t44 RNA: a 131-nucleotide RNA sequence from Candidatus Thiodiazotropha endoloripes. The match comes from Rfam's covariance-model search (74 bits).

[Rfam]
RNA sequence: AUUCUCGCGGGUAGAAAACACACACAUAUCGUCACAUGGUCCUGGGUGCCUUGGAAGAUACUGAGUAUUACUAAGUUUUACUUAUUAAUCAGUAUCAUAAGGUUGGACUAUGGGAUAUGUGGAGGUUUAAC
Numbered sequence: 001a002u003u004c005u006c007g008c009g010g011g012u013a014g015a016a017a018a019c020a021c022a023c024a025c026a027u028a029u030c031g032u033c034a035c036a037u038g039g040u041c042c043u044g045g046g047u048g049c050c051u052u053g054g055a056a057g058a059u060a061c062u063g064a065g066u067a068u069u070a071c072u073a074a075g076u077u078u079u080a081c082u083u084a085u086u087a088a089u090c091a092g093u094a095u096c097a098u099a100a101g102g103u104u105g106g107a108c109u110a111u112g113g114g115a116u117a118u119g120u121g122g123a124g125g126u127u128u129a130a131c
Base pairs, nucleotide, nucleotide: 023121024120025119026118027117028116029115030114035112036111037110038109039108040107041106042105048103049102050101051100052099
Background
This family consists of a number of bacterial RNA genes of between 135 and 170 bases in length.